Notes: A member of the RNA family "mir-1388 microRNA precursor family" from Takifugu flavidus, 92 nucleotides long. The match comes from Rfam's covariance-model search (79 bits). The base pairs follow the family's consensus structure, which was predicted with RNAalifold. Taxonomically the source falls in Takifugu (Eukaryota, Bilateria, Actinopterygii, Clupeocephala).

RNA sequence: UCUUCUGUGGUUCUUUCUAGGACUGUCCAACCUGAGAAUGUUGAUUUUGGGCUCAAUCUCAGGUUCGUCAGCCCAUGAAACACUAACAAUUA
Numbered sequence: 001u002c003u004u005c006u007g008u009g010g011u012u013c014u015u016u017c018u019a020g021g022a023c024u025g026u027c028c029a030a031c032c033u034g035a036g037a038a039u040g041u042u043g044a045u046u047u048u049g050g051g052c053u054c055a056a057u058c059u060c061a062g063g064u065u066c067g068u069c070a071g072c073c074c075a076u077g078a079a080a081c082a083c084u085a086a087c088a089a090u091u092a
Stems, first nucleotide, its partner, number of pairs: 006088002008085004014080004020074002023071003027067001029065009039055002